[Rfam]
RNA sequence: ACCGAGACUCGAGUCACAUCUUGACAUGUUGGAUUGUCCUGGUGUGCUAUCAAUCUCGGACAUUAUCGUCUGAUCCACAUUCACUGGCUGUGAUGUCACAUGUCUCAGCCAGCCACCGAAUCAGCAACACUU
Numbered sequence: 001a002c003c004g005a006g007a008c009u010c011g012a013g014u015c016a017c018a019u020c021u022u023g024a025c026a027u028g029u030u031g032g033a034u035u036g037u038c039c040u041g042g043u044g045u046g047c048u049a050u051c052a053a054u055c056u057c058g059g060a061c062a063u064u065a066u067c068g069u070c071u072g073a074u075c076c077a078c079a080u081u082c083a084c085u086g087g088c089u090g091u092g093a094u095g096u097c098a099c100a101u102g103u104c105u106c107a108g109c110c111a112g113c114c115a116c117c118g119a120a121u122c123a124g125c126a127a128c129a130c131u132u
Stems, first nucleotide, its partner, number of pairs: 002059005012048002015046006023038004070124005076118001084112004089107002092104003